[Rfam]
RNA sequence: CCUACACCCAUGUGUGUAGGAACCUAAAGGAUCACCAUUAAAUAUAGCACAGAUCUCUAGAAAAGUUAUCACAUUGGUGUGGGACUUGAUUUUUCUAGAGAUCUGUGCCAUAUUUAAUGGUUAUCCGUUGGGGUCCUAUAACAUGGGUGUGGG
Numbered sequence: 001c002c003u004a005c006a007c008c009c010a011u012g013u014g015u016g017u018a019g020g021a022a023c024c025u026a027a028a029g030g031a032u033c034a035c036c037a038u039u040a041a042a043u044a045u046a047g048c049a050c051a052g053a054u055c056u057c058u059a060g061a062a063a064a065g066u067u068a069u070c071a072c073a074u075u076g077g078u079g080u081g082g083g084a085c086u087u088g089a090u091u092u093u094u095c096u097a098g099a100g101a102u103c104u105g106u107g108c109c110a111u112a113u114u115u116a117a118u119g120g121u122u123a124u125c126c127g128u129u130g131g132g133g134u135c136c137u138a139u140a141a142c143a144u145g146g147g148u149g150u151g152g153g
Stems, first nucleotide, its partner, number of pairs: 002152012015140007023132005030125003034121012047108022069082005
RNA: MIR8565 microRNA precursor family
Organism: Amborella trichopoda